[Rfam]
Nucleotides: 054
Stems, first nucleotide, its partner, number of pairs: 013043001014041003020036006
Number, partner (000 for none) and nucleotide at each position: 001000u002000a003000c004000c005000u006000c007000c008000a009000c010000a011000a012000u013043u014041g015040u016039a017000u018000g019000u020036c021035g022034c023033u024032u025031u026000g027000g028000a029000c030000a031025a032024a033023a034022g035021c036020g037000c038000c039016u040015g041014c042000u043013a044000a045000a046000u047000g048000a049000c050000u051000a052000a053000a054000u
The family of this 54-nucleotide RNA from Danio rerio is "UnaL2 LINE 3' element". The eel long interspersed element (LINE) UnaL2 and its partner short interspersed element (SINE) share a conserved 3' tail containing a stem-loop that is critical for their retrotransposition. Presumably, the first step of retrotransposition is the recognition of their 3' tails by UnaL2-encoded reverse transcriptase. The family's consensus secondary structure is taken from published work. The source organism's lineage runs through Eukaryota, Euteleostomi, Cypriniphysae, Danioninae and Danio.